[Rfam]
Bacterial RNase P class A: a 352-nucleotide sequence from Candidatus Minimicrobia naudis.

RNA sequence: GUAGUCUGUUAGGCAAUCGCUUAAGUUAUACUUAAGAGGAAAGUCCGGGCAGCGAAGGAUACGACAGUCGUUAACGGCGACCGGAGGCAACUCUAGGGAAAGUGCCACAGAAACGAAACUACCUUCGUAUUUUAUAUACGAGGGAAAAGGUGAAACGAGUGGGGUAAGAGCCCACAGUCAUCUAUGGCGACAUAGACGAGAGGUAAACCCUGCCGACUGCAAGGAGAAGUUUUGCAUGCAAAGAAGUCGAUUAUCCGCCCGCAAACCAAUAACCGCUUGAUUUGUUUGGCAACAAGCAAACUAGAUAGAUGAUUGCCCUAGACAGAACCCGGCUUAUAGACAGACUAUGAAC
Dot-bracket structure: ((((((((((((((((((.(((((((...)))))))....[[[.[[[[[(((....[.[..((.(((((((.....)))))(((((....)))).)((...(((((............((.((((((((.......))))))))...)).........(((((.......)))))...(.((((((....)))))).)...)))..)))))).)).)))...((......(((((..........((.(..].]).))..))))).......))......((((((((....))))))))..........)))))))..........]]]]]]]].).))))))))))....
Numbered sequence: 001g002u003a004g005u006c007u008g009u010u011a012g013g014c015a016a017u018c019g020c021u022u023a024a025g026u027u028a029u030a031c032u033u034a035a036g037a038g039g040a041a042a043g044u045c046c047g048g049g050c051a052g053c054g055a056a057g058g059a060u061a062c063g064a065c066a067g068u069c070g071u072u073a074a075c076g077g078c079g080a081c082c083g084g085a086g087g088c089a090a091c092u093c094u095a096g097g098g099a100a101a102g103u104g105c106c107a108c109a110g111a112a113a114c115g116a117a118a119c120u121a122c123c124u125u126c127g128u129a130u131u132u133u134a135u136a137u138a139c140g141a142g143g144g145a146a147a148a149g150g151u152g153a154a155a156c157g158a159g160u161g162g163g164g165u166a167a168g169a170g171c172c173c174a175c176a177g178u179c180a181u182c183u184a185u186g187g188c189g190a191c192a193u194a195g196a197c198g199a200g201a202g203g204u205a206a207a208c209c210c211u212g213c214c215g216a217c218u219g220c221a222a223g224g225a226g227a228a229g230u231u232u233u234g235c236a237u238g239c240a241a242a243g244a245a246g247u248c249g250a251u252u253a254u255c256c257g258c259c260c261g262c263a264a265a266c267c268a269a270u271a272a273c274c275g276c277u278u279g280a281u282u283u284g285u286u287u288g289g290c291a292a293c294a295a296g297c298a299a300a301c302u303a304g305a306u307a308g309a310u311g312a313u314u315g316c317c318c319u320a321g322a323c324a325g326a327a328c329c330c331g332g333c334u335u336a337u338a339g340a341c342a343g344a345c346u347a348u349g350a351a352c
Stems, first nucleotide, its partner, number of pairs: 001348010011337001012317007020036007041335003045332005050219003057254001059252001062215002065212002067081005082096001083094004097210002102208002104204003119149002122144008159175005179198001181196006223274002231265005246258002249255001281300008